[Rfam]
RNA: Small nucleolar RNA ZL1
Organism: Carlito syrichta
RNA sequence: AGAGAAGCAAAGUGAUGAGCAGUGCUGGCUAGAGUCCUAAAGUGGCACCUGUGUGUGUGUGUGUAUCUGUAUCCUUGUCUGUGCAUGGUCAUGUGUGUCUGGGAGUAUGAGUGUGUGUGACUGGCUGUAGGGAACUAGCUAUGUGCCUUUUGUUGGGCCAUGACAGUGAAACUGAUAAGAUCUGAUUGCUUC
Numbered sequence: 001a002g003a004g005a006a007g008c009a010a011a012g013u014g015a016u017g018a019g020c021a022g023u024g025c026u027g028g029c030u031a032g033a034g035u036c037c038u039a040a041a042g043u044g045g046c047a048c049c050u051g052u053g054u055g056u057g058u059g060u061g062u063g064u065a066u067c068u069g070u071a072u073c074c075u076u077g078u079c080u081g082u083g084c085a086u087g088g089u090c091a092u093g094u095g096u097g098u099c100u101g102g103g104a105g106u107a108u109g110a111g112u113g114u115g116u117g118u119g120a121c122u123g124g125c126u127g128u129a130g131g132g133a134a135c136u137a138g139c140u141a142u143g144u145g146c147c148u149u150u151u152g153u154u155g156g157g158c159c160a161u162g163a164c165a166g167u168g169a170a171a172c173u174g175a176u177a178a179g180a181u182c183u184g185a186u187u188g189c190u191u192c
Stems, first nucleotide, its partner, number of pairs: 004192007014182003026169001028167003036103004041098001045094003049088006057079001061074001063072003105118004121138004126133001140162004145158004